[Rfam]
RNA: Pseudomonas sRNA CrcZ
Organism: Pseudomonas sp. StFLB209
RNA sequence: ACAAGAAAAAUAAAAACCUGUACCACCCACAUAAUAAAAACAAGACGAAUCGACUCACGCAUAACAAGAACAACACGGCGGAGGCGCAGCUAACUGAUUCUUUUGGAGAGGUGUUGUAUUUGGGGCUUGCCCCACGACCAGGCUGAGAACAACAAAAACUACCCCAAGGUAGCACCUGAACUGGUUGGAUCGAUUGAUCAUUGCAAGACAGCGACCAAAGCAAUCCGUUUGCUCUUUACUCUCGGUUUGAGAGGUUUCACAGGCACAAAGCCUUGUGAAUGGGCACUCAACAAAAACAAGAAGCCCGACUCAAUAAUAAAAAUAAAGAGCACGCACUUUGGGGGAGCUUCGGCUCCCCCAGUAGCUUCCGGACUUCUGUCACCCUGCCUAC
Numbered sequence: 001a002c003a004a005g006a007a008a009a010a011u012a013a014a015a016a017c018c019u020g021u022a023c024c025a026c027c028c029a030c031a032u033a034a035u036a037a038a039a040a041c042a043a044g045a046c047g048a049a050u051c052g053a054c055u056c057a058c059g060c061a062u063a064a065c066a067a068g069a070a071c072a073a074c075a076c077g078g079c080g081g082a083g084g085c086g087c088a089g090c091u092a093a094c095u096g097a098u099u100c101u102u103u104u105g106g107a108g109a110g111g112u113g114u115u116g117u118a119u120u121u122g123g124g125g126c127u128u129g130c131c132c133c134a135c136g137a138c139c140a141g142g143c144u145g146a147g148a149a150c151a152a153c154a155a156a157a158a159c160u161a162c163c164c165c166a167a168g169g170u171a172g173c174a175c176c177u178g179a180a181c182u183g184g185u186u187g188g189a190u191c192g193a194u195u196g197a198u199c200a201u202u203g204c205a206a207g208a209c210a211g212c213g214a215c216c217a218a219a220g221c222a223a224u225c226c227g228u229u230u231g232c233u234c235u236u237u238a239c240u241c242u243c244g245g246u247u248u249g250a251g252a253g254g255u256u257u258c259a260c261a262g263g264c265a266c267a268a269a270g271c272c273u274u275g276u277g278a279a280u281g282g283g284c285a286c287u288c289a290a291c292a293a294a295a296a297c298a299a300g301a302a303g304c305c306c307g308a309c310u311c312a313a314u315a316a317u318a319a320a321a322a323u324a325a326a327g328a329g330c331a332c333g334c335a336c337u338u339u340g341g342g343g344g345a346g347c348u349u350c351g352g353c354u355c356c357c358c359c360a361g362u363a364g365c366u367u368c369c370g371g372a373c374u375u376c377u378g379u380c381a382c383c384c385u386g387c388c389u390a391c
Base pairs, nucleotide, nucleotide: 051086052085054083055082056081101220102219103218104217105216115213116212117211135187136186137185138184139183140182141181159172160171161170162169163168239253240252241251242250275382276381277380278379281306282305283304284303325367326366327365340359341358342357343356344355345354346353347352